[Rfam]
Nucleotides: 128
Base pairs, nucleotide, nucleotide: 015119016118017117018116019115020114021113023111033091034090036089037088042086044084045083049059050058066079067078068077069076070075
Number, partner (000 for none) and nucleotide at each position: 001000u002000c003000c004000u005000g006000u007000u008000c009000u010000g011000c012000g013000g014000g015119g016118a017117g018116a019115g020114g021113g022000a023111u024000g025000a026000g027000a028000a029000c030000c031000u032000u033091c034090g035000a036089u037088u038000a039000a040000g041000g042086u043000u044084c045083g046000g047000g048000u049059c050058g051000a052000g053000c054000a055000u056000c057000g058050c059049g060000a061000g062000a063000c064000a065000a066079c067078g068077c069076g070075c071000u072000u073000c074000a075070g076069c077068g078067c079066g080000g081000c082000c083045c084044g085000c086042a087000g088037g089036g090034u091033g092000a093000g094000g095000c096000g097000c098000a099000a100000c101000g102000c103000g104000c105000c106000g107000a108000a109000u110000a111023a112000u113021c114020c115019u116018u117017c118016u119015c120000c121000c122000a123000c124000c125000a126000c127000c128000a